[Rfam]
RNA sequence: AUGUUAACGUGUAUGCAUUAACAUCGGUUUUUUAAAAAACCGAUGUUAAUGCAUAUACGUUAAUAU
Number, nucleotide and partner (000 for none) at each position: 001a066002u065003g064004u063005u062006a061007a060008c059009g058010u057011g056012u000013a054014u053015g052016c051017a050018u049019u048020a047021a046022c045023a044024u043025c042026g041027g040028u039029u038030u037031u036032u000033u000034a000035a000036a031037a030038a029039a028040c027041c026042g025043a024044u023045g022046u021047u020048a019049a018050u017051g016052c015053a014054u013055a000056u011057a010058c009059g008060u007061u006062a005063a004064u003065a002066u001

Rfam assigns this 66-nucleotide RNA from Glycine soja to the family "MIR4359 microRNA precursor family". It scores 76 bits against the family's covariance model. Gene Ontology terms of the family: miRNA-mediated post-transcriptional gene silencing and RISC complex.